This 69-nucleotide RNA sequence from Pteropus alecto belongs to the Rfam family "mir-563 microRNA precursor family". The base pairs follow the family's consensus structure, which was predicted with RNAalifold. A search with the family's covariance model found it, with a score of 74 bits. Rfam links the family to the GO terms miRNA-mediated post-transcriptional gene silencing and RISC complex.
RNA sequence: UAUGUUGCCCUCCAGGAAAUGUAUGUCACUCUGUAGUAAUUAGGCUGACAUACAUUUCCCUGGUGGCAA
Numbered sequence: 001u002a003u004g005u006u007g008c009c010c011u012c013c014a015g016g017a018a019a020u021g022u023a024u025g026u027c028a029c030u031c032u033g034u035a036g037u038a039a040u041u042a043g044g045c046u047g048a049c050a051u052a053c054a055u056u057u058c059c060c061u062g063g064u065g066g067c068a069a
Base pairs, nucleotide, nucleotide: 001069004067005066006065007064008063009062015059016058017057018056019055020054021053022052023051024050025049026048027047028046030044031043032042033041